Shown here is a 128-nucleotide RNA sequence from Modestobacter italicus, a member of the family "SAM riboswitch aptamer (S box leader)". The SAM riboswitch is found upstream of a number of genes which code for proteins involved in methionine or cysteine biosynthesis in Gram-positive bacteria. The match comes from Rfam's covariance-model search (71 bits). NCBI's taxonomy places the organism under Bacteria, Actinomycetota, Actinomycetes, Geodermatophilales, Modestobacter.
RNA sequence: CACUCAUCCAGAGGGGCAGAGGGACACGGCCCGAUGAAGCCCCGGCAACCGCCGUGCGCAGUCCUGCGCACGGAAGGUGCCACAUCCGUCCCGCGCGGCUCGACGGCCCGGCGCGGGGAAGAUGAGGA
Number, nucleotide and partner (000 for none) at each position: 001c000002a000003c126004u125005c124006a123007u122008c121009c000010a000011g000012a000013g043014g042015g041016g040017c039018a000019g000020a000021g032022g031023g030024a000025c000026a089027c088028g087029g086030c023031c022032c021033g000034a000035u000036g000037a000038a000039g017040c016041c015042c014043c013044g081045g080046c079047a078048a000049c077050c076051g000052c073053c072054g071055u070056g069057c068058g067059c000060a000061g000062u000063c000064c000065u000066g000067c058068g057069c056070a055071c054072g053073g052074a000075a000076g050077g049078u047079g046080c045081c044082a000083c000084a000085u120086c029087c028088g027089u026090c117091c116092c115093g114094c113095g112096c000097g000098g000099c000100u000101c000102g000103a000104c000105g000106g000107c000108c000109c000110g000111g000112c095113g094114c093115g092116g091117g090118g000119a000120a085121g008122a007123u006124g005125a004126g003127g000128a000